Source information:
This 109-nucleotide sequence from Seinonella peptonophila belongs to the Rfam family "Ribosomal protein L20 leader". This family is a putative r-protein leader autoregulatory structure found in B. subtilis and other low-GC Gram-positive bacteria. It is located in the 5' untranslated regions of mRNAs encoding initiation factor 3 followed by ribosomal proteins L35 and L20 (infC-rpmI-rplT). By type it is a cis-regulatory leader.
RNA sequence: UGUAAAAAGCAGAAGCACCCGCUUCUCACCUAGUCAACACUACAGGUUGUUACUGGGUUACUUGAUAGGAUGAUAGUGGGUGCAUAUGCACCCCUUUUUUUAUUUUUUU
Numbered sequence: 001u002g003u004a005a006a007a008a009g010c011a012g013a014a015g016c017a018c019c020c021g022c023u024u025c026u027c028a029c030c031u032a033g034u035c036a037a038c039a040c041u042a043c044a045g046g047u048u049g050u051u052a053c054u055g056g057g058u059u060a061c062u063u064g065a066u067a068g069g070a071u072g073a074u075a076g077u078g079g080g081u082g083c084a085u086a087u088g089c090a091c092c093c094c095u096u097u098u099u100u101u102a103u104u105u106u107u108u109u
Stems, first nucleotide, its partner, number of pairs: 011026006028047003033040002075096002078093006
A reference for the family is Zengel and Lindahl (1994), "Diverse mechanisms for regulating ribosomal protein synthesis in Escherichia coli", Prog Nucleic Acid Res Mol Biol. The family's consensus secondary structure was predicted with CMfinder. The match comes from Rfam's covariance-model search (62 bits). Lineage of the source: Bacteria > Bacillati > Caryophanales > Thermoactinomycetaceae > Seinonella.